[Rfam]
Nucleotides: 377
Base pairs, nucleotide, nucleotide: 001377002376003375004374008370009369012320013319014318015317016316017315018314022083023082024081025080035061036060037059038058039057040056041055042054043053093361094360095359096358097357103288104287105286161172162171163170164169175190176189177188178187179186192283193282194281195280198278199277200276212267213266214265321349322348323347324346325345326344
Number, partner (000 for none) and nucleotide at each position: 001377u002376c003375c004374u005000c006000u007000u008370c009369a010000a011000c012320g013319c014318u015317g016316c017315g018314u019000u020000u021000c022083u023082a024081u025080g026000c027000c028000a029000c030000a031000a032000a033000c034000g035061g036060a037059g038058a039057g040056c041055g042054c043053u044000u045000g046000c047000g048000c049000a050000a051000g052000c053043a054042g055041c056040g057039c058038u059037u060036u061035c062000a063000a064000a065000u066000c067000c068000a069000u070000c071000u072000u073000u074000c075000u076000c077000u078000g079000g080025c081024a082023u083022a084000u085000g086000a087000g088000a089000a090000a091000u092000u093361c094360g095359g096358a097357g098000a099000a100000u101000c102000g103288g104287c105286u106000u107000c108000a109000c110000u111000c112000u113000u114000g115000g116000u117000u118000u119000g120000u121000c122000c123000a124000u125000u126000c127000c128000u129000c130000a131000c132000u133000c134000u135000c136000g137000g138000g139000u140000g141000u142000u143000g144000g145000a146000u147000g148000g149000g150000u151000u152000a153000c154000g155000a156000g157000c158000u159000c160000u161172g162171c163170c164169g165000g166000u167000g168000a169164c170163g171162g172161c173000u174000u175190g176189g177188c178187g179186c180000g181000a182000a183000u184000u185000c186179g187178c188177g189176u190175c191000u192283g193282u194281a195280a196000u197000u198278g199277g200276c201000a202000u203000c204000a205000g206000a207000a208000a209000a210000g211000c212267a213266g214265g215000g216000c217000u218000u219000a220000g221000a222000g223000g224000c225000c226000a227000a228000c229000c230000u231000u232000g233000u234000g235000c236000u237000u238000u239000u240000g241000c242000g243000a244000g245000g246000g247000g248000a249000a250000u251000u252000g253000g254000u255000c256000a257000u258000c259000u260000a261000g262000g263000u264000u265214c266213c267212u268000c269000u270000g271000g272000g273000a274000g275000g276200g277199c278198c279000g280195u281194u282193a283192c284000g285000a286105a287104g288103c289000u290000u291000g292000u293000g294000a295000g296000c297000a298000a299000u300000c301000a302000c303000u304000u305000g306000a307000g308000u309000g310000c311000a312000a313000u314018a315017c316016g317015c318014a319013g320012c321349g322348u323347g324346u325345g326344g327000c328000c329000u330000g331000c332000c333000u334000u335000c336000u337000g338000g339000g340000c341000a342000g343000a344326u345325c346324a347323c348322a349321c350000a351000a352000u353000u354000c355000g356000a357097u358096u359095c360094c361093g362000a363000u364000u365000a366000u367000c368000c369009u370008g371000u372000u373000g374004a375003g376002g377001a